The record is a 66-nucleotide RNA sequence from Lipotes vexillifer, which matches "Small nucleolar RNA SNORD77" in Rfam. A search with the family's covariance model found it, with a score of 60 bits. Lineage of the source: Eukaryota > Bilateria > Chordata > Euteleostomi > Lipotes. Pairs were carried over by alignment from the consensus structure, which was predicted with RNAalifold. Rfam describes the family as follows. U77 belongs to the C/D family of snoRNAs. Gene Ontology terms of the family: RNA processing and nucleolus.
RNA sequence: UUACUAUGAUGGUUGCAUAGUUCAACAGAUUGAAUCAUGAAAGAGAUAUACCAUUUAUCUGAUGGU
Numbered sequence: 001u002u003a004c005u006a007u008g009a010u011g012g013u014u015g016c017a018u019a020g021u022u023c024a025a026c027a028g029a030u031u032g033a034a035u036c037a038u039g040a041a042a043g044a045g046a047u048a049u050a051c052c053a054u055u056u057a058u059c060u061g062a063u064g065g066u
Stems, first nucleotide, its partner, number of pairs: 003066002006038005013028003044056004
Dot-bracket structure: ..((.(((((..(((..........))).....))))).....((((.....))))........))